[Rfam]
RNA sequence: CACCGAGUCCGAGGGUCCGGGAUUCGCCGGAGCCUGGUGCAAAAGGGA
Numbered sequence: 001c002a003c004c005g006a007g008u009c010c011g012a013g014g015g016u017c018c019g020g021g022a023u024u025c026g027c028c029g030g031a032g033c034c035u036g037g038u039g040c041a042a043a044a045g046g047g048a
Base pairs, nucleotide, nucleotide: 013034014033016031017030018029019028020027